[Rfam]
RNA sequence: AGAACCCGCGCGGGAGAGUCCGGUCCGACACCUCGGGCCGGCGCCGAAGGAGCAAAACCUCCCCGGAACCUCUCAGGCACACGGACCGCGCGGACGAG
Numbered sequence: 001a002g003a004a005c006c007c008g009c010g011c012g013g014g015a016g017a018g019u020c021c022g023g024u025c026c027g028a029c030a031c032c033u034c035g036g037g038c039c040g041g042c043g044c045c046g047a048a049g050g051a052g053c054a055a056a057a058c059c060u061c062c063c064c065g066g067a068a069c070c071u072c073u074c075a076g077g078c079a080c081a082c083g084g085a086c087c088g089c090g091c092g093g094a095c096g097a098g
Base pairs, nucleotide, nucleotide: 006093007092008091009090010089011088012087013086020041021040022039023038024037025036026035027034043078044077045076046074047073050072051071052070
The family of this 98-nucleotide RNA sequence from Amycolatopsis suaedae is "Glycine riboswitch aptamer". Taxonomically the source falls in Amycolatopsis (Bacteria, Actinomycetota, Actinomycetes, Pseudonocardiaceae). This family represents the bacterial glycine riboswitch.